[Rfam]
RNA sequence: AGAAUUCGAAGCGGCGCACUCCUCCUCCCAGCGCCUCUUCGAUACGAUUGGCAACACUCCUCCUCCCAGUUGCCAAUCAUCCCAAAUGACGCCCGCCGGAUCUCCUCCCCCGGCGGGCGUUAUUG
Numbered sequence: 001a002g003a004a005u006u007c008g009a010a011g012c013g014g015c016g017c018a019c020u021c022c023u024c025c026u027c028c029c030a031g032c033g034c035c036u037c038u039u040c041g042a043u044a045c046g047a048u049u050g051g052c053a054a055c056a057c058u059c060c061u062c063c064u065c066c067c068a069g070u071u072g073c074c075a076a077u078c079a080u081c082c083c084a085a086a087u088g089a090c091g092c093c094c095g096c097c098g099g100a101u102c103u104c105c106u107c108c109c110c111c112g113g114c115g116g117g118c119g120u121u122a123u124u125g
Stems, first nucleotide, its partner, number of pairs: 007041003011037001013035005046078010089120011
A member of the RNA family "Alphaproteobacterial ar14" from Rhizobium subbaraonis, 125 nucleotides long. It scores 122 bits against the family's covariance model. On this family, see del Val et al., RNA Biol 2012: "A survey of sRNA families in alpha-proteobacteria". Rfam links the family to the GO term biological process involved in symbiotic interaction. Rfam 15.1 lists 784 matches to the family in 332 species. Pairs were carried over by alignment from the consensus structure.